[Rfam]
RNA sequence: CCCCCGCUUCCCCUUCCCUCCCUGAGCGGGGCCGAUCGUGCAAGCGAAAGGCAUUCGGCCCCGGAGAAUAUCCCUGUUCUCCGGGGUUUUUUUU
Numbered sequence: 001c002c003c004c005c006g007c008u009u010c011c012c013c014u015u016c017c018c019u020c021c022c023u024g025a026g027c028g029g030g031g032c033c034g035a036u037c038g039u040g041c042a043a044g045c046g047a048a049a050g051g052c053a054u055u056c057g058g059c060c061c062c063g064g065a066g067a068a069u070a071u072c073c074c075u076g077u078u079c080u081c082c083g084g085g086g087u088u089u090u091u092u093u094u
Stems, first nucleotide, its partner, number of pairs: 003030006031052003036047003059086012

Description:
Rfam assigns this 94-nucleotide RNA sequence from Herbaspirillum seropedicae to the family "Burkholderia RNA 7 (anti-hemB)". This RNA motif was identified by computational search in b-proteobacteria Burkholderia. Co-purified with Hfq, expression confirmed by Northern blot. The source organism's lineage runs through Bacteria, Betaproteobacteria, Burkholderiales, Oxalobacteraceae and Herbaspirillum seropedicae.